[Rfam]
Rfam assigns this 74-nucleotide RNA sequence from Crocodylus porosus to the family "Mammalian CPEB3 ribozyme". A search with the family's covariance model found it, with a score of 44 bits. NCBI's taxonomy places the organism under Eukaryota, Chordata, Dipnotetrapodomorpha, Sauria, Crocodylus.
RNA sequence: UUGCAAGUUCAAGGUCAUAGCAGAAGUGCUCAUGAUGCAGCCUGCCAGAUUCCAAUGAAUCUGGAAAUUCUGCU
Numbered sequence: 001u002u003g004c005a006a007g008u009u010c011a012a013g014g015u016c017a018u019a020g021c022a023g024a025a026g027u028g029c030u031c032a033u034g035a036u037g038c039a040g041c042c043u044g045c046c047a048g049a050u051u052c053c054a055a056u057g058a059a060u061c062u063g064g065a066a067a068u069u070c071u072g073c074u
Stems, first nucleotide, its partner, number of pairs: 013042003019074007026038003046063007
The family's consensus secondary structure is taken from published work.